[Rfam]
tRNA: a 73-nucleotide sequence from Nakaseomyces glabratus. Rfam's curators put it in the seed alignment. Its family is annotated with triplet codon-amino acid adaptor activity in the Gene Ontology. By type it is a transfer RNA.

RNA sequence: CUAAAUAUAUUUCAAUGGUUAGCAAAAUACGCUUGUGGUGCGUUAAAUCUAAGUUCGAUUCUUAGUAUUUACC
Number, nucleotide and partner (000 for none) at each position: 001c000002u071003a070004a069005a068006u067007a066008u000009a000010u026011u025012u024013c000014a000015a000016u000017g000018g000019u000020u000021a000022g000023c000024a012025a011026a010027a000028u000029a043030c042031g041032c040033u000034u000035g000036u000037g000038g000039u000040g032041c031042g030043u029044u000045a000046a000047a000048u000049c065050u064051a063052a062053g061054u000055u000056c000057g000058a000059u000060u000061c053062u052063u051064a050065g049066u007067a006068u005069u004070u003071a002072c000073c000
NCBI's taxonomy places the organism under Eukaryota, Opisthokonta, Fungi, Saccharomycetales, Nakaseomyces.